[Rfam]
Shown here is a 68-nucleotide RNA sequence from Malus domestica, a member of the family "Small nucleolar RNA Z105". Its family is annotated with RNA processing and nucleolus in the Gene Ontology. The family has 11 seed sequences and 621 matches in Rfam 15.1. It is annotated as a C/D-box small nucleolar RNA. A search with the family's covariance model found it, with a score of 46 bits. On this family, see Chen et al., Nucleic Acids Res 2003: "The high diversity of snoRNAs in plants: identification and comparative study of 120 snoRNA genes from Oryza sativa".

RNA sequence: CAGGCAUAGUGAUGAUGCGUAUUUUCUGAUUUAUUGUUGAUGAAUUAAUUACCUCCUACUCAUACUGA
Numbered sequence: 001c002a003g004g005c006a007u008a009g010u011g012a013u014g015a016u017g018c019g020u021a022u023u024u025u026c027u028g029a030u031u032u033a034u035u036g037u038u039g040a041u042g043a044a045u046u047a048a049u050u051a052c053c054u055c056c057u058a059c060u061c062a063u064a065c066u067g068a
Base pairs, nucleotide, nucleotide: 006063007062009060027044031042
Dot-bracket structure: .....((.(.................(...(..........).)...............).)).....